Record summary
The family of this 127-nucleotide RNA sequence from Camelus ferus is "Small nucleolar RNA SNORA56". The organism belongs to Camelus, within Eukaryota. By type it is an H/ACA-box small nucleolar RNA. Rfam describes the family as follows. ACA56 is a member of the H/ACA class of snoRNA that guide the sites of modification of uridines to pseudouridines. Its family is annotated with RNA processing and nucleolus in the Gene Ontology. The family has 17 seed sequences and 153 matches in Rfam 15.1.
RNA sequence: CAGCAGACAGUUAUCCCUUUUCUGGUCUGGCUUGGUAGACUCCAGAGGGAGUCCGUCUUCAGCGUUAAAUGGUGAGCUCUUUCCAGCAUCAGUGUUUGGAAGGUGGCUUUAGAUCUGCCAGAGACCA
Numbered sequence: 001c002a003g004c005a006g007a008c009a010g011u012u013a014u015c016c017c018u019u020u021u022c023u024g025g026u027c028u029g030g031c032u033u034g035g036u037a038g039a040c041u042c043c044a045g046a047g048g049g050a051g052u053c054c055g056u057c058u059u060c061a062g063c064g065u066u067a068a069a070u071g072g073u074g075a076g077c078u079c080u081u082u083c084c085a086g087c088a089u090c091a092g093u094g095u096u097u098g099g100a101a102g103g104u105g106g107c108u109u110u111a112g113a114u115c116u117g118c119c120a121g122a123g124a125c126c127a
Stems, first nucleotide, its partner, number of pairs: 003060001005058004021046005026039003070120005076114001078113003082106002087102001089100002092097001